This 350-nucleotide RNA sequence from Yoonia vestfoldensis belongs to the Rfam family "Alphaproteobacteria transfer-messenger RNA". The family's RNA type in Rfam is non-coding RNA gene.
Nucleotides: 350
Base pairs, nucleotide, nucleotide: 040051041050042049043048055186056185058183059182065179066178067175068174069173070172079164080163083161084160085159089105090104091103092102093101106146107145108144109143110142111141112140187202188201189200190199193212194211196210197209198208316331317330318329319328322347323346324345325344326343327342
Number, partner (000 for none) and nucleotide at each position: 001000c002000c003000u004000c005000u006000u007000g008000c009000a010000u011000u012000g013000u014000g015000a016000c017000g018000g019000a020000u021000g022000a023000a024000a025000g026000c027000c028000u029000a030000c031000c032000u033000c034000u035000g036000a037000a038000g039000u040051g041050u042049c043048c044000u045000u046000c047000g048043g049042g050041a051040c052000u053000a054000u055186g056185g057000a058183c059182a060000u061000a062000a063000a064000c065179g066178c067175g068174c069173u070172c071000g072000u073000a074000a075000u076000a077000c078000g079164c080163g081000g082000a083161u084160c085159g086000g087000a088000c089105c090104c091103g092102g093101g094000g095000g096000c097000g098000g099000u100000a101093c102092c103091c104090g105089g106146c107145g108144u109143c110142u111141c112140c113000a114000c115000c116000a117000a118000a119000c120000a121000c122000u123000g124000c125000u126000c127000a128000u129000u130000u131000g132000g133000c134000a135000g136000c137000c138000a139000u140112g141111g142110g143109g144108a145107c146106g147000a148000a149000a150000c151000a152000g153000g154000a155000u156000c157000g158000a159085c160084g161083a162000a163080c164079g165000u166000c167000u168000a169000a170000a171000g172070g173069g174068g175067u176000u177000u178066g179065c180000u181000u182059u183058g184000g185056c186055u187202c188201g189200g190199u191000g192000a193212g194211u195000u196210a197209c198208c199190a200189c201188c202187g203000u204000u205000a206000u207000c208198g209197g210196u211194a212193c213000a214000a215000a216000a217000a218000a219000g220000c221000u222000a223000g224000u225000u226000g227000c228000a229000a230000a231000u232000g233000a234000c235000a236000a237000c238000a239000a240000a241000g242000c243000a244000c245000c246000a247000a248000u249000g250000g251000c252000g253000a254000u255000g256000g257000c258000u259000g260000c261000g262000u263000a264000a265000g266000c267000a268000g269000u270000c271000g272000g273000a274000a275000c276000u277000a278000u279000u280000g281000a282000a283000a284000c285000c286000u287000u288000a289000a290000g291000c292000c293000c294000u295000a296000u297000g298000g299000u300000u301000u302000u303000g304000c305000g306000a307000c308000c309000a310000u311000a312000g313000g314000c315000g316331g317330g318329g319328u320000c321000c322347g323346c324345a325344g326343g327342u328319a329318c330317c331316u332000g333000g334000c335000a336000a337000c338000a339000g340000a341000a342327a343326c344325c345324u346323g347322c348000a349000c350000c

The base pairs follow the family's consensus structure, which is taken from published work.